[Rfam]
RNA sequence: UUUCCCAUUUUUCAGUACCGUUCAUUAAUCCAUCCCAGAAUGAACGGCUAUGCUAAUGGGAGAGAGAGAACACUGUCAUUGUCUUGACGGAGCGGCUGGCUUCGUCCACCCCUCCUAAUAGAACUGACAGAACAAUUUCUA
Numbered sequence: 001u002u003u004c005c006c007a008u009u010u011u012u013c014a015g016u017a018c019c020g021u022u023c024a025u026u027a028a029u030c031c032a033u034c035c036c037a038g039a040a041u042g043a044a045c046g047g048c049u050a051u052g053c054u055a056a057u058g059g060g061a062g063a064g065a066g067a068g069a070a071c072a073c074u075g076u077c078a079u080u081g082u083c084u085u086g087a088c089g090g091a092g093c094g095g096c097u098g099g100c101u102u103c104g105u106c107c108a109c110c111c112c113u114c115c116u117a118a119u120a121g122a123a124c125u126g127a128c129a130g131a132a133c134a135a136u137u138u139c140u141a
Stems, first nucleotide, its partner, number of pairs: 004060004018047004075128004094115002
Dot-bracket structure: ...((((..........((((......................)))).........))))..............((((...............((..................)).........)))).............

The family of this 141-nucleotide RNA sequence from Salmo trutta is "Small nucleolar RNA SNORA29". Gene Ontology terms of the family: nucleolus and RNA processing. NCBI's taxonomy places the organism under Eukaryota, Craniata, Euteleostomi, Actinopteri, Salmo. For this family Rfam cites "RNomics: an experimental approach that identifies 201 candidates for novel, small, non-messenger RNAs in mouse" (Huttenhofer et al., EMBO J, 2001). Rfam describes the family as follows. ACA29 is a member of the H/ACA class of snoRNA that guide the sites of modification of uridines to pseudouridines.